[Rfam]
RNA sequence: GGGGAUGAUCGGUUUCGACAGCGGCUGUCGAAGCAGGGGAAGCGUGUCGAGGAAGCGGCCAUGAUCUCGUAAACCACAGGCCGAAAAAAUAAUCGCCAACACCAAGCGCGAUUCCUCCCAGCAGGCCUUCGCCCUCGCUGCCUGAUCUCAGGUAGCGAAGCGAGCCUCCUACUAAGGGAGUGUCAGCCCGGGGCUGUUCCCGACCCGGAUCCUGGCAUCAGCUAGGGGACUAAACCUUGAUCCCGGUCACGGGGUGAAGAGGGAAACCAAACAGUGACUGGGCCCGUCGGAGACUUGUCCGCGUGAUCUCCGGGGCCGAGAAAAUCGAAGCGGACUGCACACGGAGAAGCCCUGAUUCCGCACCGUUGGACGCGGGUUCGAUUCCCGCCAUCUCCAC
Dot-bracket structure: (((((((...........((((((.....(((.(((((....((((((((((...[[[[[....))))).........]]]]].....................................................((((((((....))))))))........................((((((.((((....[[[[[[...))))...)))))).......]]]]]]....[.[[...[..((((((...]...]].]............)))))).(((((......((...[[[[...[..))....)))))..........]...]]]]...)))))......))))).)))....))))))...(((((.......))))))))))))..
Numbered sequence: 001g002g003g004g005a006u007g008a009u010c011g012g013u014u015u016c017g018a019c020a021g022c023g024g025c026u027g028u029c030g031a032a033g034c035a036g037g038g039g040a041a042g043c044g045u046g047u048c049g050a051g052g053a054a055g056c057g058g059c060c061a062u063g064a065u066c067u068c069g070u071a072a073a074c075c076a077c078a079g080g081c082c083g084a085a086a087a088a089a090u091a092a093u094c095g096c097c098a099a100c101a102c103c104a105a106g107c108g109c110g111a112u113u114c115c116u117c118c119c120a121g122c123a124g125g126c127c128u129u130c131g132c133c134c135u136c137g138c139u140g141c142c143u144g145a146u147c148u149c150a151g152g153u154a155g156c157g158a159a160g161c162g163a164g165c166c167u168c169c170u171a172c173u174a175a176g177g178g179a180g181u182g183u184c185a186g187c188c189c190g191g192g193g194c195u196g197u198u199c200c201c202g203a204c205c206c207g208g209a210u211c212c213u214g215g216c217a218u219c220a221g222c223u224a225g226g227g228g229a230c231u232a233a234a235c236c237u238u239g240a241u242c243c244c245g246g247u248c249a250c251g252g253g254g255u256g257a258a259g260a261g262g263g264a265a266a267c268c269a270a271a272c273a274g275u276g277a278c279u280g281g282g283c284c285c286g287u288c289g290g291a292g293a294c295u296u297g298u299c300c301g302c303g304u305g306a307u308c309u310c311c312g313g314g315g316c317c318g319a320g321a322a323a324a325u326c327g328a329a330g331c332g333g334a335c336u337g338c339a340c341a342c343g344g345a346g347a348a349g350c351c352c353u354g355a356u357u358c359c360g361c362a363c364c365g366u367u368g369g370a371c372g373c374g375g376g377u378u379c380g381a382u383u384c385c386c387g388c389c390a391u392c393u394c395c396a397c
Stems, first nucleotide, its partner, number of pairs: 001395007019368006030358003034354005043343005048069005056083005137156008181217006188208004196230006235261001237259002242254001245279006281317005292308002297335004304328001372388005